[Rfam]
RNA sequence: CGGUAAUGUCUCCUAACCGAUACCGAUGGAGGCACUCGGUCAUGCCGUGGGCAAGAGGGAAAGCUUUUGCCUUAGACGCCAGUCGUCGAUGGUGUGGUGUGAGGACGGGUUAAAUGCCCA
Numbered sequence: 001c002g003g004u005a006a007u008g009u010c011u012c013c014u015a016a017c018c019g020a021u022a023c024c025g026a027u028g029g030a031g032g033c034a035c036u037c038g039g040u041c042a043u044g045c046c047g048u049g050g051g052c053a054a055g056a057g058g059g060a061a062a063g064c065u066u067u068u069g070c071c072u073u074a075g076a077c078g079c080c081a082g083u084c085g086u087c088g089a090u091g092g093u094g095u096g097g098u099g100u101g102a103g104g105a106c107g108g109g110u111u112a113a114a115u116g117c118c119c120a
Stems, first nucleotide, its partner, number of pairs: 001019004007034007035103004039098008049072008075087004107119004
Shown here is a 120-nucleotide sequence from Bacillus sp. V3-13, a member of the family "epsC RNA". The family's consensus secondary structure is taken from published work. The match comes from Rfam's covariance-model search (113 bits).